c-di-GMP-I riboswitch aptamer: a 92-nucleotide RNA sequence from Thermodesulfitimonas autotrophica. The match comes from Rfam's covariance-model search (55 bits).
RNA sequence: UUUCGGGUUGGGUAAACCAGGCGAAAGCCUGGGGCGCUAAAGCCAUGGGUCUAAGGUCUGCGCAAGCAGGCUAUGAUCGCCAGGCUGAACGG
Numbered sequence: 001u002u003u004c005g006g007g008u009u010g011g012g013u014a015a016a017c018c019a020g021g022c023g024a025a026a027g028c029c030u031g032g033g034g035c036g037c038u039a040a041a042g043c044c045a046u047g048g049g050u051c052u053a054a055g056g057u058c059u060g061c062g063c064a065a066g067c068a069g070g071c072u073a074u075g076a077u078c079g080c081c082a083g084g085c086u087g088a089a090c091g092g
Stems, first nucleotide, its partner, number of pairs: 012037002017032006041086004046082003049077003056071006